[Rfam]
Nucleotides: 070
Stems, first nucleotide, its partner, number of pairs: 004066002007063004013057005018051001020049004025044003
Number, partner (000 for none) and nucleotide at each position: 001000a002000a003000c004066a005065u006000u007063a008062c009061c010060c011000a012000a013057a014056c015055a016054a017053a018051a019000g020049c021048a022047c023046u024000g025044a026043c027042u028000u029000g030000a031000g032000u033000u034000u035000u036000g037000u038000c039000u040000g041000c042027a043026g044025u045000a046023a047022g048021u049020g050000a051018u052000g053017u054016u055015u056014g057013u058000u059000g060010g061009g062008g063007u064000c065005g066004u067000a068000u069000u070000g

Rfam assigns this 70-nucleotide RNA sequence from Mola mola to the family "miR-430 microRNA precursor family". On this family, see Giraldez et al., Science 2005: "MicroRNAs regulate brain morphogenesis in zebrafish". The family's consensus secondary structure was predicted with RNAalifold. Taxonomically the source falls in Mola (Eukaryota, Eumetazoa, Craniata, Euteleostomi). Its Rfam clan is "mir-290 clan".